[Rfam]
RNA sequence: GAAGGCCUAUGAUGAUUCAAAAGUUUGCCUACAUUGUUUGAGUAAAUCCAUGAUAUAACUCUUCUUACAAAAUGUUUCUGAGGCCUUU
Numbered sequence: 001g002a003a004g005g006c007c008u009a010u011g012a013u014g015a016u017u018c019a020a021a022a023g024u025u026u027g028c029c030u031a032c033a034u035u036g037u038u039u040g041a042g043u044a045a046a047u048c049c050a051u052g053a054u055a056u057a058a059c060u061c062u063u064c065u066u067a068c069a070a071a072a073u074g075u076u077u078c079u080g081a082g083g084c085c086u087u088u
Base pairs, nucleotide, nucleotide: 001088002087004085005084006083007082
Shown here is an 88-nucleotide sequence from Capsella rubella, a member of the family "Small nucleolar RNA SNORD34". The literature on the family includes a 2002 paper in Mol Cell Biol by Galardi et al., "Purified box C/D snoRNPs are able to reproduce site-specific 2'-O-methylation of target RNA in vitro". Lineage of the source: Eukaryota > eudicotyledons > rosids > Brassicales > Capsella. From the family's description: snoRNA U34 is found in intron 5 of the ribosomal protein L13a gene in humans. The family's RNA type in Rfam is C/D-box small nucleolar RNA. Clan: SNORD34 clan. Rfam links the family to the GO terms RNA processing and nucleolus. The family's consensus secondary structure was predicted with PFOLD. It scores 46 bits against the family's covariance model.